[Rfam]
Annotation:
Rfam assigns this 76-nucleotide RNA from Senna tora to the family "Small nucleolar RNA Z105". The family has 11 seed sequences and 621 matches in Rfam 15.1. A reference for the family is Chen et al. (2003), "The high diversity of snoRNAs in plants: identification and comparative study of 120 snoRNA genes from Oryza sativa", Nucleic Acids Res. The match comes from Rfam's covariance-model search (47 bits). By type it is a C/D-box small nucleolar RNA.
RNA sequence: UAGUGAUGAAUGAUGAUAGCUACAAACUUGUCAUAUGAUAUUCAUAUGAUGAUACAAAUCCUCCUACUCAUUCUGA
Numbered sequence: 001u002a003g004u005g006a007u008g009a010a011u012g013a014u015g016a017u018a019g020c021u022a023c024a025a026a027c028u029u030g031u032c033a034u035a036u037g038a039u040a041u042u043c044a045u046a047u048g049a050u051g052a053u054a055c056a057a058a059u060c061c062u063c064c065u066a067c068u069c070a071u072u073c074u075g076a
Stems, first nucleotide, its partner, number of pairs: 006071004031052002